The record is a 92-nucleotide sequence from Oceanobacillus limi, which matches "Guanidine-I riboswitch aptamer" in Rfam. This family represents a conserved RNA structure found upstream of the ykkC and yxkD genes in Bacillus subtilis and related genes in other bacteria. The function of this family is unclear although it has been suggested that it may function to switch on efflux pumps and detoxification systems in response to harmful environmental molecules. The literature on the family includes a 2004 paper in Proc Natl Acad Sci U S A by Barrick et al., "New RNA motifs suggest an expanded scope for riboswitches in bacterial genetic control". It scores 81 bits against the family's covariance model. Taxonomically the source falls in Oceanobacillus (Bacteria, Bacillati, Bacilli, Bacillaceae).
[Rfam]
RNA sequence: UUAAAAGUUUUCUAGGGUUCCGCACCUAAUGGUGGUCAGGUCCGAGAGAAAACGCACGAAAGUGUACACGGAGGGGGAAAAGCCCGGGAGAU
Numbered sequence: 001u002u003a004a005a006a007g008u009u010u011u012c013u014a015g016g017g018u019u020c021c022g023c024a025c026c027u028a029a030u031g032g033u034g035g036u037c038a039g040g041u042c043c044g045a046g047a048g049a050a051a052a053c054g055c056a057c058g059a060a061a062g063u064g065u066a067c068a069c070g071g072a073g074g075g076g077g078a079a080a081a082g083c084c085c086g087g088g089a090g091a092u
Base pairs, nucleotide, nucleotide: 007053008052009051010050011049012048015043016042020040021039022037023034024033025032026031054065055064056063057062067087069090073085074084075083